[Rfam]
RNA: Glycine riboswitch aptamer
Organism: Microbacterium immunditiarum
RNA sequence: AUGACGACUGCGGGAGAGCCCCGACCACGCCGAGCGUGGGGACGGGCACCGAAGGAGCAAGCCUCCCCGCCAAUCUCUCAGGUCCGUGUACCGCAUCCGUCCG
Numbered sequence: 001a002u003g004a005c006g007a008c009u010g011c012g013g014g015a016g017a018g019c020c021c022c023g024a025c026c027a028c029g030c031c032g033a034g035c036g037u038g039g040g041g042a043c044g045g046g047c048a049c050c051g052a053a054g055g056a057g058c059a060a061g062c063c064u065c066c067c068c069g070c071c072a073a074u075c076u077c078u079c080a081g082g083u084c085c086g087u088g089u090a091c092c093g094c095a096u097c098c099g100u101c102c103g
Stems, first nucleotide, its partner, number of pairs: 006098001009095005020046004048083003051079002055077003061070002